[Rfam]
RNA sequence: UCGAAAAUAUUCUUGUUCUGAUUUUGUAAUAAUCAGGCAGGUUAAACAUUCACUAUAUUAAGACCAUGCAUAUGUCCCCAGACCUAGCUCUUCCCCUAGGCCUGGUUUUAUAAAUGUUGGUGACAAAC
Number, nucleotide and partner (000 for none) at each position: 001u052002c000003g000004a000005a000006a000007a000008u000009a000010u000011u000012c000013u040014u039015g038016u000017u037018c036019u035020g034021a033022u032023u031024u000025u000026g000027u000028a000029a000030u000031a023032a022033u021034c020035a019036g018037g017038c015039a014040g013041g000042u000043u000044a000045a000046a000047c000048a000049u000050u000051c000052a001053c000054u000055a000056u000057a000058u000059u000060a000061a000062g000063a121064c120065c119066a118067u000068g117069c116070a000071u000072a000073u000074g000075u000076c000077c000078c105079c104080a103081g102082a000083c100084c099085u098086a097087g096088c000089u000090c000091u000092u000093c000094c000095c000096c087097u086098a085099g084100g083101c000102c081103u080104g079105g078106u000107u000108u000109u000110a000111u000112a000113a000114a000115u000116g069117u068118u066119g065120g064121u063122g000123a000124c000125a000126a000127a000128c000

The record is a 128-nucleotide RNA sequence from Pteropus vampyrus, which matches "Small nucleolar RNA SNORA72" in Rfam. A search with the family's covariance model found it, with a score of 119 bits. Rfam classes the family as an H/ACA-box small nucleolar RNA. The family's consensus secondary structure was predicted with PFOLD.